The family of this 89-nucleotide sequence from Trifolium medium is "Small nucleolar RNA R44/J54/Z268 family". The family's consensus secondary structure was predicted with PFOLD. The family's RNA type in Rfam is C/D-box small nucleolar RNA. Its Rfam clan is "SNORD74 clan".
RNA sequence: UUUGCAAGUGAUGACAAACUAGACAGGGACAUCCGAUCUCUUAAUUAAGAGAAAAUGAUGAUUUGUCGUGGGAAUCUCUCUGAUGCAUA
Numbered sequence: 001u002u003u004g005c006a007a008g009u010g011a012u013g014a015c016a017a018a019c020u021a022g023a024c025a026g027g028g029a030c031a032u033c034c035g036a037u038c039u040c041u042u043a044a045u046u047a048a049g050a051g052a053a054a055a056u057g058a059u060g061a062u063u064u065g066u067c068g069u070g071g072g073a074a075u076c077u078c079u080c081u082g083a084u085g086c087a088u089a
Stems, first nucleotide, its partner, number of pairs: 003087004